[Rfam]
RNA: Betaproteobacteria toxic small RNA
RNA sequence: UGUCUCCUCCACCCAUCUCCUUUGGUGGAUUUAAACCCGAGUCUGCAAGGACUCGGGUUUUUUUUC
Numbered sequence: 001u002g003u004c005u006c007c008u009c010c011a012c013c014c015a016u017c018u019c020c021u022u023u024g025g026u027g028g029a030u031u032u033a034a035a036c037c038c039g040a041g042u043c044u045g046c047a048a049g050g051a052c053u054c055g056g057g058u059u060u061u062u063u064u065u066c
Base pairs, nucleotide, nucleotide: 008029009028010027011026012025013024015022034059035058036057037056038055039054040053041052